RNA: tRNA
Organism: Mycolicibacterium phlei
RNA sequence: GCCCUUGUAGCCCAAUCGGCAGAGGCACACGACUCAAAAUCGUGACAGUGUGGGUUCGACUCCCACCAAGGGCA
Dot-bracket structure: (((((((..(((...........))).(((((.......))))).....(((((.......)))))))))))).